The family of this 347-nucleotide RNA sequence from Mortierella sp. NVP85 is "RNase MRP". The family has 66 seed sequences and 3,510 matches in Rfam 15.1.
[Rfam]
RNA sequence: GAUCACACCGCAGAAUCGCACAUUGGAGCAUCACAGUUCUACGACGAGGCUCUUCUUUCUUGGAGGAGACCUCGACCAAAACAUACUUGAAAUGCUCUAGGGAAAGUCCUCGGACCUCACGGCAGAAAGUGUCGCCUAUAACACUGGUCUUUUCUGAGAUCCGCAAGAGAUCGAUCGUUUCGGUUGGGCCAAGACGGCUUCUCUUCGUUCUCGUAAGGGAGGGAAGCUCGAACGCUCCUCAACGAUCUGUUCUUGCGGCUCAGUGUUCGUCAUGGUCUACAGUUAUGCGAUUGCGGUUGUCCUUCUGGGGCGAUCGUAACUCAACGAGGCUCACUCGCGGACGUGAU
Dot-bracket structure: .(((((.((((..((((((...(((((((((............................................................)))))))))....[[.[[[[.........((((.....))))............(....(.......)....)..((....((((((.......((((.............................(((.....)))....))))....))))))...))..................................)))))).((((((((.......)))))))).........]]]]]].....))))..)))))
By type it is a ribozyme. From the family's description: RNase MRP is an enzymatically active ribonucleoprotein with two distinct roles in eukaryotes. In mitochondria it plays a direct role in the initiation of mitochondrial DNA replication. In the nucleus it is involved in precursor rRNA processing, where it cleaves the internal transcribed spacer 1 between 18S and 5.8S rRNAs. Despite distinct functions, RNase MRP has been shown to be evolutionarily related to RNase P. Like eukaryotic RNase P, RNase MRP is not catalytically active without associated protein subunits.